[Rfam]
RNA sequence: AUGCAAAUGAUGAAAUACUCAGAUUCCCCUUCAGGACAUCCUGGAUGAUGUUAUCUCGAGUUGCUGAUGUA
Numbered sequence: 001a002u003g004c005a006a007a008u009g010a011u012g013a014a015a016u017a018c019u020c021a022g023a024u025u026c027c028c029c030u031u032c033a034g035g036a037c038a039u040c041c042u043g044g045a046u047g048a049u050g051u052u053a054u055c056u057c058g059a060g061u062u063g064c065u066g067a068u069g070u071a
Base pairs, nucleotide, nucleotide: 002071003070004069005068
Small nucleolar RNA snoR60: a 71-nucleotide sequence from Amborella trichopoda. The base pairs follow the family's consensus structure, which was predicted with PFOLD. The family's RNA type in Rfam is C/D-box small nucleolar RNA. Its Rfam clan is "SNORD101 clan". Taxonomically the source falls in Amborella (Eukaryota, Viridiplantae, Embryophyta, Tracheophyta).